Rfam assigns this 95-nucleotide RNA sequence from Brachypodium distachyon to the family "Small nucleolar RNA snoR31/Z110/Z27". This family contains several related snoRNAs including R31, Z27 and Z110. The family has 8 seed sequences and 571 matches in Rfam 15.1. The literature on the family includes a 2003 paper in Nucleic Acids Res by Chen et al., "The high diversity of snoRNAs in plants: identification and comparative study of 120 snoRNA genes from Oryza sativa".
[Rfam]
RNA sequence: AGUAUCAUGGGAUGAAACCUUAACAAUCUUAGGACACCUUCUGACACAGUGUUGUUAUCCUGUGAAUGAGAAGGCAUUUAUUUUCUGAUGAUACU
Number, nucleotide and partner (000 for none) at each position: 001a095002g094003u093004a092005u091006c090007a089008u000009g000010g000011g000012a000013u000014g000015a000016a000017a000018c000019c000020u000021u000022a000023a000024c000025a000026a000027u000028c000029u000030u000031a000032g000033g000034a000035c000036a000037c000038c000039u000040u000041c000042u048043g047044a000045c000046a000047c043048a042049g000050u000051g000052u000053u000054g000055u000056u000057a000058u000059c000060c000061u000062g000063u000064g000065a000066a000067u000068g000069a000070g000071a000072a000073g000074g000075c000076a000077u000078u000079u000080a000081u000082u000083u000084u000085c000086u000087g000088a000089u007090g006091a005092u004093a003094c002095u001